[Rfam]
RNA: mir-7 microRNA precursor family
RNA sequence: AGCUCUGGGGCAGGCUGGAAGACUUGCGAUUUUGUUGUUUCCAAUCUCAGAGGGAGCAAACAACAAAUCCCAGUCUCUGUCCUGCCCCGGGCA
Number, nucleotide and partner (000 for none) at each position: 001a000002g092003c091004u090005c089006u000007g000008g087009g086010g000011c084012a083013g082014g081015c000016u079017g078018g077019a000020a076021g075022a074023c073024u072025u000026g071027c000028g069029a068030u067031u066032u065033u000034g064035u063036u062037g061038u060039u059040u000041c000042c000043a000044a000045u000046c000047u000048c000049a000050g000051a000052g000053g000054g000055a000056g000057c000058a000059a039060a038061c037062a036063a035064c034065a032066a031067a030068u029069c028070c000071c026072a024073g023074u022075c021076u020077c018078u017079g016080u000081c014082c013083u012084g011085c000086c009087c008088c000089g005090g004091g003092c002093a000